Shown here is a 217-nucleotide sequence, a member of the family "IS605-orfB-I RNA". It is one of the family's seed sequences.
[Rfam]
RNA sequence: AUCCUAUAUAGAUGUAUUCAACGCAAGCUAGUUGGGCAUCUCCCUUUAGGAUGAAGUUUAGUUAGAGGCUCUGGCGAUAAUUCUCAUUGUGUGGCUACGGUCGAAAUGAGAUGAGUCAGAGUGGAAUAGGUUAACCGUAAGACCUUGGGUUGGAAAACUCUAAAAUUGAGCUAGAGAUGUGAAUUUCUUAAAAUUCGUAGUUUCUAGUUACGGUUGG
Numbered sequence: 001a002u003c004c005u006a007u008a009u010a011g012a013u014g015u016a017u018u019c020a021a022c023g024c025a026a027g028c029u030a031g032u033u034g035g036g037c038a039u040c041u042c043c044c045u046u047u048a049g050g051a052u053g054a055a056g057u058u059u060a061g062u063u064a065g066a067g068g069c070u071c072u073g074g075c076g077a078u079a080a081u082u083c084u085c086a087u088u089g090u091g092u093g094g095c096u097a098c099g100g101u102c103g104a105a106a107u108g109a110g111a112u113g114a115g116u117c118a119g120a121g122u123g124g125a126a127u128a129g130g131u132u133a134a135c136c137g138u139a140a141g142a143c144c145u146u147g148g149g150u151u152g153g154a155a156a157a158c159u160c161u162a163a164a165a166u167u168g169a170g171c172u173a174g175a176g177a178u179g180u181g182a183a184u185u186u187c188u189u190a191a192a193a194u195u196c197g198u199a200g201u202u203u204c205u206a207g208u209u210a211c212g213g214u215u216g217g
Stems, first nucleotide, its partner, number of pairs: 001052006008045001010041006018035005023029001068122008082111007093102002128145005134214006140166001147160005171207008179198007